[Rfam]
The record is a 93-nucleotide RNA sequence from Castanea mollissima, which matches "MIR396 microRNA precursor family" in Rfam. Gene Ontology terms of the family: miRNA-mediated post-transcriptional gene silencing and RISC complex. The family's consensus secondary structure was predicted with WAR. Taxonomically the source falls in Castanea (Eukaryota, Viridiplantae, Streptophyta, Embryophyta).

RNA sequence: UGUCAUGCUUUUCCACGGCUUUCUUGAACUUCAGCCACACUAGAUUUAUUAUGUGGUGUAGAAGUUCAAGAAAGCUGUGGGAGAACAUGGCAA
Numbered sequence: 001u002g003u004c005a006u007g008c009u010u011u012u013c014c015a016c017g018g019c020u021u022u023c024u025u026g027a028a029c030u031u032c033a034g035c036c037a038c039a040c041u042a043g044a045u046u047u048a049u050u051a052u053g054u055g056g057u058g059u060a061g062a063a064g065u066u067c068a069a070g071a072a073a074g075c076u077g078u079g080g081g082a083g084a085a086c087a088u089g090g091c092a093a
Stems, first nucleotide, its partner, number of pairs: 003090005013080003017076006024069004029064004